The family of this 58-nucleotide sequence is "Glutamine-II riboswitch aptamer".
For this family Rfam cites "Structure and ligand binding of the glutamine-II riboswitch" (Huang et al., Nucleic Acids Res, 2019).
Rfam's curators put it in the seed alignment.
[Rfam]
Nucleotides: 058
Stems, first nucleotide, its partner, number of pairs: 004048005010024005033058006039051002
Number, partner (000 for none) and nucleotide at each position: 001000g002000u003000c004048c005047g006046u007045u008044c009000a010024u011023c012022g013021c014020u015000a016000a017000u018000u019000u020014a021013g022012c023011g024010a025000c026000g027000c028000a029000u030000g031000c032000a033058a034057c035056c036055u037054a038053g039051c040050c041000a042000u043000g044008g045007a046006a047005c048004g049000g050040g051039g052000g053038u054037u055036a056035g057034g058033u